[Rfam]
RNA sequence: CGGCUCUUCCUAUCAUACCGAAGCAGAAUUCGGUAAGCGUUGGAUUGUUCACCCACUAAAGGUGUCUCUGUUGGUGGGGAUAGUCGGGCCCGCGAGGGCUACGCCGGCUAGUCGAUACGGCGCACGCUGCAGGUGCCGUACGGCGACACAACCUGGAUCGGGGGAGGCUAAGGGCGGCGCGCGCGCCGCCUACGCUAAUCCCGAGGGGAGCCGCGCGGGGGCGACCCCGCGGCGGCCCCUGUAGAGCGCGGAAAGGUGUGGGCGGUCUCGGCGGACGAGAUCGCUUAAGGGACGUGCCAGACCCGCGGGAAACCGCGCCGGGCGCGAAGGACCUGCAGUCCGGAUCGCACGGGAGGCGUCGGAGCCCCGGGAGGAAAUGCCCGGGGCGAGCCUGGUGUAAGUCGAAUAGGGAACGUGAGCUGGGUUUAGACCGUCGUGAGACAGGUUAGUU
Number, nucleotide and partner (000 for none) at each position: 001c423002g421003g420004c419005u418006c415007u412008u411009c410010c409011u408012a000013u000014c039015a000016u000017a034018c033019c032020g031021a030022a029023g000024c000025a000026g000027a000028a000029u022030u021031c020032g019033g018034u017035a000036a000037g000038c000039g014040u000041u404042g403043g402044a000045u400046u399047g398048u397049u000050c000051a000052c000053c000054c000055a000056c000057u000058a000059a000060a000061g000062g000063u000064g000065u000066c000067u000068c000069u000070g000071u000072u000073g000074g000075u000076g000077g000078g000079g000080a000081u000082a000083g000084u000085c000086g000087g000088g000089c000090c000091c000092g000093c000094g000095a000096g000097g000098g000099c000100u000101a000102c000103g000104c000105c000106g000107g000108c000109u000110a000111g000112u000113c000114g000115a000116u000117a000118c000119g000120g000121c000122g000123c000124a000125c000126g000127c000128u000129g000130c000131a000132g000133g000134u000135g000136c000137c000138g000139u000140a000141c000142g000143g000144c000145g000146a000147c000148a000149c000150a000151a000152c000153c000154u000155g000156g000157a000158u000159c000160g000161g000162g000163g000164g000165a000166g000167g000168c000169u000170a000171a000172g000173g000174g000175c000176g000177g000178c000179g000180c000181g000182c000183g000184c000185g000186c000187c000188g000189c000190c000191u000192a000193c000194g000195c000196u000197a000198a000199u000200c000201c000202c000203g000204a000205g000206g000207g000208g000209a000210g000211c000212c000213g000214c000215g000216c000217g000218g000219g000220g000221g000222c000223g000224a000225c000226c000227c000228c000229g000230c000231g000232g000233c000234g000235g000236c000237c000238c000239c000240u000241g000242u000243a000244g000245a000246g000247c000248g000249c000250g000251g000252a000253a000254a000255g000256g000257u000258g000259u000260g000261g000262g000263c000264g000265g000266u000267c000268u000269c000270g000271g000272c000273g000274g000275a000276c000277g000278a000279g000280a000281u000282c000283g000284c000285u000286u000287a000288a000289g000290g000291g000292a000293c000294g000295u000296g000297c000298c000299a000300g000301a000302c000303c000304c000305g000306c000307g000308g000309g000310a000311a000312a000313c000314c000315g000316c000317g000318c000319c000320g000321g000322g000323c000324g000325c000326g000327a000328a000329g000330g000331a000332c000333c000334u000335g000336c000337a000338g000339u000340c000341c000342g000343g000344a000345u000346c000347g000348c000349a000350c000351g000352g000353g000354a000355g000356g000357c000358g000359u000360c000361g000362g000363a000364g000365c000366c000367c000368c000369g000370g000371g000372a000373g000374g000375a000376a000377a000378u000379g000380c000381c000382c000383g000384g000385g000386g000387c000388g000389a000390g000391c000392c000393u000394g000395g000396u000397g048398u047399a046400a045401g000402u043403c042404g041405a000406a000407u000408a011409g010410g009411g008412a007413a000414c000415g006416u000417g000418a005419g004420c003421u002422g000423g001424g000425u000426u000427u000428a000429g447430a446431c445432c444433g442434u441435c440436g000437u000438g000439a000440g435441a434442c433443a000444g432445g431446u430447u429448a000449g000450u000451u000
This 451-nucleotide part of an RNA from Ophiocordyceps camponoti-rufipedis belongs to the Rfam family "Eukaryotic large subunit ribosomal RNA". Clan: LSU clan. It scores 3121 bits against the family's covariance model. Taxonomically the source falls in Ophiocordyceps (Eukaryota, Fungi, saccharomyceta, leotiomyceta).